[Rfam]
RNA sequence: GGCUUUUUUCGCGCGGGAGCUCGACCCGCGACCGAGCAGCUGAUCAAGUUCGUCAGCGACCACAAGCACACGUUCGGAGUCGAGCCGAUCUGCCGGGUCAUGGGGAUCGCUCCG
Numbered sequence: 001g002g003c004u005u006u007u008u009u010c011g012c013g014c015g016g017g018a019g020c021u022c023g024a025c026c027c028g029c030g031a032c033c034g035a036g037c038a039g040c041u042g043a044u045c046a047a048g049u050u051c052g053u054c055a056g057c058g059a060c061c062a063c064a065a066g067c068a069c070a071c072g073u074u075c076g077g078a079g080u081c082g083a084g085c086c087g088a089u090c091u092g093c094c095g096g097g098u099c100a101u102g103g104g105g106a107u108c109g110c111u112c113c114g
Base pairs, nucleotide, nucleotide: 013029014028015027016026017025075114076113077112078111079110086109087108089106090105091104093102
RNA: ALIL pseudoknot